Rfam assigns this 54-nucleotide RNA sequence from Danio rerio to the family "U7 small nuclear RNA".

RNA sequence: GAAAAUAUCUCUUUUACUAUUUGUCCAGUAGGUUUCCUUUAAAAGGAAGCCCAU
Dot-bracket structure: ..............................((((((((.....))))))))...

About the family: Animal histone pre-mRNAs are spliced by a different mechanism than nuclear pre-mRNAs and self-splicing introns.